[Rfam]
RNA sequence: UCCCUUUCGAUGAUGUAAAAUUUUCGGAUGUAAAUCAUUUAAACCACCGAGAGCGCAAAACCGUGUGGAUAUCUUCCGUUGCCUUCCUUCUGAGUC
Numbered sequence: 001u002c003c004c005u006u007u008c009g010a011u012g013a014u015g016u017a018a019a020a021u022u023u024u025c026g027g028a029u030g031u032a033a034a035u036c037a038u039u040u041a042a043a044c045c046a047c048c049g050a051g052a053g054c055g056c057a058a059a060a061c062c063g064u065g066u067g068g069a070u071a072u073c074u075u076c077c078g079u080u081g082c083c084u085u086c087c088u089u090c091u092g093a094g095u096c
Stems, first nucleotide, its partner, number of pairs: 004094001025078004
RNA: Small nucleolar RNA Z13/snr52
Organism: Pyrenophora tritici-repentis